[Rfam]
RNA sequence: AUCUAAACCAAACACUACUCUUAAGCUUCUUUUUUCAAGGUUCUUUACCUACCACCUCUAUACUCAUCAUGUCUCCUUGUGCUUGCAACUGCUGCUCUGGCGAGUGCAACUCCUGCUCUUGCUCUACCUGCACUGUAUGUCAUU
Numbered sequence: 001a002u003c004u005a006a007a008c009c010a011a012a013c014a015c016u017a018c019u020c021u022u023a024a025g026c027u028u029c030u031u032u033u034u035u036c037a038a039g040g041u042u043c044u045u046u047a048c049c050u051a052c053c054a055c056c057u058c059u060a061u062a063c064u065c066a067u068c069a070u071g072u073c074u075c076c077u078u079g080u081g082c083u084u085g086c087a088a089c090u091g092c093u094g095c096u097c098u099g100g101c102g103a104g105u106g107c108a109a110c111u112c113c114u115g116c117u118c119u120u121g122c123u124c125u126a127c128c129u130g131c132a133c134u135g136u137a138u139g140u141c142a143u144u
Base pairs, nucleotide, nucleotide: 078102079101080100085095086094087093106131107130108129115122116121
About this RNA
This 144-nucleotide sequence from Penicillium crustosum belongs to the Rfam family "A. fumigatus sRNA Afu_254". The family's RNA type in Rfam is small RNA. The source organism's lineage runs through Eukaryota, leotiomyceta, Eurotiales, Aspergillaceae and Penicillium. The match comes from Rfam's covariance-model search (68 bits). Rfam 15.1 lists 185 matches to the family in 142 species.